[Rfam]
RNA sequence: GUGAUUGUAAUUCAAUGGUAGAAUGCUUAUUUGUGGCAUAAGAAGUUCUUGGUUCGAUUCCAAGUAAUCACC
Numbered sequence: 001g002u003g004a005u006u007g008u009a010a011u012u013c014a015a016u017g018g019u020a021g022a023a024u025g026c027u028u029a030u031u032u033g034u035g036g037c038a039u040a041a042g043a044a045g046u047u048c049u050u051g052g053u054u055c056g057a058u059u060c061c062a063a064g065u066a067a068u069c070a071c072c
Stems, first nucleotide, its partner, number of pairs: 001071007010024004026042005048064005
A member of the RNA family "tRNA" from Schizosaccharomyces pombe, 72 nucleotides long. The base pairs follow the family's consensus structure, which is taken from published work. Taxonomically the source falls in Schizosaccharomyces (Eukaryota, Dikarya, Ascomycota, Taphrinomycotina). Rfam's curators put it in the seed alignment.